[Rfam]
RNA sequence: AAUAAUUUAAUCAGUUUCACUCAUAUAAUACCGAUAAUAUGGAUCGGCUGUCUCUACCAAAUGACCGUAAAUCAUUUGACUAUGGGUGAAGUUAUUAUAUAU
Numbered sequence: 001a002a003u004a005a006u007u008u009a010a011u012c013a014g015u016u017u018c019a020c021u022c023a024u025a026u027a028a029u030a031c032c033g034a035u036a037a038u039a040u041g042g043a044u045c046g047g048c049u050g051u052c053u054c055u056a057c058c059a060a061a062u063g064a065c066c067g068u069a070a071a072u073c074a075u076u077u078g079a080c081u082a083u084g085g086g087u088g089a090a091g092u093u094a095u096u097a098u099a100u101a102u
Stems, first nucleotide, its partner, number of pairs: 018088008031047005058078007
RNA: Purine riboswitch aptamer
Organism: Alkaliphilus pronyensis